[Rfam]
Nucleotides: 086
Stems, first nucleotide, its partner, number of pairs: 003083002011036002016031006034072001039079004044075003047070005
Number, partner (000 for none) and nucleotide at each position: 001000c002000u003083c004082g005000a006000a007000a008000a009000a010000g011036g012035c013000a014000a015000a016031c017030c018029g019028c020027c021026g022000g023000g024000a025000a026021c027020g028019g029018c030017g031016g032000g033000a034072c035012g036011c037000a038000a039079a040078g041077u042076u043000a044075c045074c046073g047070g048069c049068c050067c051066g052000a053000a054000a055000g056000c057000g058000a059000u060000c061000c062000u063000c064000g065000c066051u067050g068049g069048g070047c071000a072034g073046c074045g075044g076042g077041a078040c079039u080000a081000c082004c083003g084000a085000g086000u